[Rfam]
RNA sequence: GCCUACGGUUUACCGGGCAGCUCUGUUUGACUAUAUAUCGUCACAAACAGAACUGCCCGGUAAAACCGUAGGC
Numbered sequence: 001g002c003c004u005a006c007g008g009u010u011u012a013c014c015g016g017g018c019a020g021c022u023c024u025g026u027u028u029g030a031c032u033a034u035a036u037a038u039c040g041u042c043a044c045a046a047a048c049a050g051a052a053c054u055g056c057c058c059g060g061u062a063a064a065a066c067c068g069u070a071g072g073c
Base pairs, nucleotide, nucleotide: 002072003071004070005069006068007067008066009065010063011062012061013060014059015058016057017056018055019054020053022051023050024049025048026047027046